[Rfam]
RNA sequence: AGAAACUUAGGAUAACCCACCUCAAACCGAAGGCCUUCAAAGCCUUAAAUAAGAGUUAAACCCUCUUAGUUUCUG
Numbered sequence: 001a002g003a004a005a006c007u008u009a010g011g012a013u014a015a016c017c018c019a020c021c022u023c024a025a026a027c028c029g030a031a032g033g034c035c036u037u038c039a040a041a042g043c044c045u046u047a048a049a050u051a052a053g054a055g056u057u058a059a060a061c062c063c064u065c066u067u068a069g070u071u072u073c074u075g
Stems, first nucleotide, its partner, number of pairs: 001074007010028002013025001030046005051067005
RNA: tRNA
Organism: Ardeotis kori